[Rfam]
RNA: Purine riboswitch aptamer
Organism: Weissella paramesenteroides
RNA sequence: AUAAAUAUGAACUACCUUGUAGAUUUAAUCGUUAGAUAAAUGGGCUAACAAGUCUCUACCGCCUACCCGAUAAUAGGCGACAAUCCACAAUUGAUUAGUGAAA
Numbered sequence: 001a002u003a004a005a006u007a008u009g010a011a012c013u014a015c016c017u018u019g020u021a022g023a024u025u026u027a028a029u030c031g032u033u034a035g036a037u038a039a040a041u042g043g044g045c046u047a048a049c050a051a052g053u054c055u056c057u058a059c060c061g062c063c064u065a066c067c068c069g070a071u072a073a074u075a076g077g078c079g080a081c082a083a084u085c086c087a088c089a090a091u092u093g094a095u096u097a098g099u100g101a102a103a
Stems, first nucleotide, its partner, number of pairs: 018089003022085004029051001031049005060079006